[Rfam]
RNA sequence: GUGAGGUGAUGACACAGUUUAUCCAUUCUCUGAGUGCAGUGGUGCUGCCCUCCUGCAGCACCCCGAUUCCUGUUCUAGGGUCUGGGUGUUGUGCAGCCUCCAGACACCCUGCAGUCUCCCAGUGUCCUGCUGGGAGCUGCUGUGGUGUGUGUGGGGCUGCCUGCAGGAGGGAAGUGGUGCUGGCAGGGUUGGAGCCCCUCUUUGAGGGGCUCUGUCCUCGCUGAGAUGAGGGAUGAUGUCUGAUCAC
Numbered sequence: 001g002u003g004a005g006g007u008g009a010u011g012a013c014a015c016a017g018u019u020u021a022u023c024c025a026u027u028c029u030c031u032g033a034g035u036g037c038a039g040u041g042g043u044g045c046u047g048c049c050c051u052c053c054u055g056c057a058g059c060a061c062c063c064c065g066a067u068u069c070c071u072g073u074u075c076u077a078g079g080g081u082c083u084g085g086g087u088g089u090u091g092u093g094c095a096g097c098c099u100c101c102a103g104a105c106a107c108c109c110u111g112c113a114g115u116c117u118c119c120c121a122g123u124g125u126c127c128u129g130c131u132g133g134g135a136g137c138u139g140c141u142g143u144g145g146u147g148u149g150u151g152u153g154g155g156g157c158u159g160c161c162u163g164c165a166g167g168a169g170g171g172a173a174g175u176g177g178u179g180c181u182g183g184c185a186g187g188g189u190u191g192g193a194g195c196c197c198c199u200c201u202u203u204g205a206g207g208g209g210c211u212c213u214g215u216c217c218u219c220g221c222u223g224a225g226a227u228g229a230g231g232g233a234u235g236a237u238g239u240c241u242g243a244u245c246a247c
Stems, first nucleotide, its partner, number of pairs: 010246003017239002020236001023232002026230003030225002034221002039184002042181001043179006049171002051168007059088005065082001068080004093160007106146002111140004116136009186219002188216001190214004195209004
Notes
Shown here is a 247-nucleotide sequence from Patagioenas fasciata, a member of the family "Small nucleolar RNA SNORD17". It scores 127 bits against the family's covariance model. For this family Rfam cites "RNomics: an experimental approach that identifies 201 candidates for novel, small, non-messenger RNAs in mouse" (Huttenhofer et al., EMBO J, 2001). The snoRNA HBI-43 belongs to the C/D family of snoRNAs, guiding 2'O-ribose methylation at position U3797 of the 28S rRNA. Pseudouridylation in position U3797 is predicted to be guided by the H/ACA snoRNA ACA48.